[Rfam]
RNA sequence: AGCCCAUCUAGAGCAGCAGAGAGACUUGGCUCAAUGAAGCUGCAGCAACCCCCGAACCCUCGGUGUGGGUGCUACCGCCAAGAACGAUGGAGG
Numbered sequence: 001a002g003c004c005c006a007u008c009u010a011g012a013g014c015a016g017c018a019g020a021g022a023g024a025c026u027u028g029g030c031u032c033a034a035u036g037a038a039g040c041u042g043c044a045g046c047a048a049c050c051c052c053c054g055a056a057c058c059c060u061c062g063g064u065g066u067g068g069g070u071g072c073u074a075c076c077g078c079c080a081a082g083a084a085c086g087a088u089g090g091a092g093g
Stems, first nucleotide, its partner, number of pairs: 004090005013043005021032003026081004044073004049069002051065001053063001077085001
About this RNA: Rfam assigns this 93-nucleotide RNA from Boudabousia liubingyangii to the family "SAM riboswitch aptamer (S box leader)". The match comes from Rfam's covariance-model search (56 bits). About the family: The SAM riboswitch is found upstream of a number of genes which code for proteins involved in methionine or cysteine biosynthesis in Gram-positive bacteria. Pairs were carried over by alignment from the consensus structure, which is taken from published work.